[Rfam]
RNA: TPP riboswitch aptamer (THI element)
Organism: Pseudothauera rhizosphaerae
RNA sequence: AUUCACCGUUGGGGGUGCCCGCCACCGACGUCCGGUAUCCGGUGGGCUGAGAGAGACCCUUGGAACCUGAUCCGGCUCGCACCGGCGUAGGGAAACGCGUCCCAUGUCUG
Numbered sequence: 001a002u003u004c005a006c007c008g009u010u011g012g013g014g015g016u017g018c019c020c021g022c023c024a025c026c027g028a029c030g031u032c033c034g035g036u037a038u039c040c041g042g043u044g045g046g047c048u049g050a051g052a053g054a055g056a057c058c059c060u061u062g063g064a065a066c067c068u069g070a071u072c073c074g075g076c077u078c079g080c081a082c083c084g085g086c087g088u089a090g091g092g093a094a095a096c097g098c099g100u101c102c103c104a105u106g107u108c109u110g
Base pairs, nucleotide, nucleotide: 007097008096009095010094011060012059013058014057016054017047018046019045020044021043022042023041066091067090068089069088072085073084074083075082